[Rfam]
RNA sequence: GAACAUUGAAGCGGUAGGCGCUCCGCCAUGCGUUUACCGUGGAGUUCCGAAGGGUUUUGUGCGUAUUCCUCAAGGCGGAUAGGUGAGAACUGAAAGAAAACGCACCAU
Numbered sequence: 001g002a003a004c005a006u007u008g009a010a011g012c013g014g015u016a017g018g019c020g021c022u023c024c025g026c027c028a029u030g031c032g033u034u035u036a037c038c039g040u041g042g043a044g045u046u047c048c049g050a051a052g053g054g055u056u057u058u059g060u061g062c063g064u065a066u067u068c069c070u071c072a073a074g075g076c077g078g079a080u081a082g083g084u085g086a087g088a089a090c091u092g093a094a095a096g097a098a099a100a101c102g103c104a105c106c107a108u
Stems, first nucleotide, its partner, number of pairs: 001047004011040011023078004059105003082091003
drum RNA: a 108-nucleotide sequence. Firmicutes, Bacteroidetes (1 example), Proteobacteria (2 examples), Spirochaetes (2 examples). The family's RNA type in Rfam is small RNA. Pairs were carried over by alignment from the consensus structure, which is taken from published work.